The family of this 74-nucleotide RNA sequence from Toxostoma redivivum is "mir-196 microRNA precursor family". Pairs were carried over by alignment from the consensus structure, which was predicted with PFOLD.

RNA sequence: UCUGUGGAUUAGGUAGUUUCAUGUUGUUGGGCUCGGUUUUAGACGCAAGGACAUCGAACUGCCCGGUCCACAGC
Numbered sequence: 001u002c003u004g005u006g007g008a009u010u011a012g013g014u015a016g017u018u019u020c021a022u023g024u025u026g027u028u029g030g031g032c033u034c035g036g037u038u039u040u041a042g043a044c045g046c047a048a049g050g051a052c053a054u055c056g057a058a059c060u061g062c063c064c065g066g067u068c069c070a071c072a073g074c
Stems, first nucleotide, its partner, number of pairs: 003072008012063008022053004027048003031044001